[Rfam]
RNA sequence: UAAAUGAACCCAAAGGCAGUAUUUGGUAUUUCCAUUUAUUUAUAUUAAAAUAGGGGAUAAUAUUAGAAUUGACAUUUA
Number, nucleotide and partner (000 for none) at each position: 001u078002a077003a076004a075005u074006g073007a000008a000009c000010c026011c025012a024013a023014a022015g000016g000017c000018a000019g000020u000021a000022u014023u013024u012025g011026g010027u059028a058029u057030u056031u055032c054033c053034a000035u000036u000037u000038a000039u000040u000041u000042a000043u000044a000045u000046u000047a000048a000049a000050a000051u000052a000053g033054g032055g031056g030057a029058u028059a027060a000061u000062a000063u000064u000065a000066g000067a000068a000069u000070u000071g000072a000073c006074a005075u004076u003077u002078a001

A member of the RNA family "Mitochondrion-encoded tmRNA", 78 nucleotides long. A reference for the family is Hafez et al. (2013), "A second eukaryotic group with mitochondrion-encoded tmRNA: in silico identification and experimental confirmation", RNA Biol. Its family is annotated with RNA catabolic process in the Gene Ontology. Clan: tRNA clan.